Source information:
A member of the RNA family "DUF3800-VII RNA", 88 nucleotides long. The base pairs follow the family's consensus structure, which is taken from published work.
RNA sequence: GAAAGGCUCCUGGAUAUCGGUUGGUCAUCUGAGAAAGAUGGCAGCACCUGUAGAGGUGUGGGAUCCUACCGCCGGGAGCUAUUUUUAU
Numbered sequence: 001g002a003a004a005g006g007c008u009c010c011u012g013g014a015u016a017u018c019g020g021u022u023g024g025u026c027a028u029c030u031g032a033g034a035a036a037g038a039u040g041g042c043a044g045c046a047c048c049u050g051u052a053g054a055g056g057u058g059u060g061g062g063a064u065c066c067u068a069c070c071g072c073c074g075g076g077a078g079c080u081a082u083u084u085u086u087a088u
Base pairs, nucleotide, nucleotide: 001084002083003082005080006079007078009076010075011074012073013072018071019070020069021068023066024042025041026040027039028038029037030036045058046057047056048055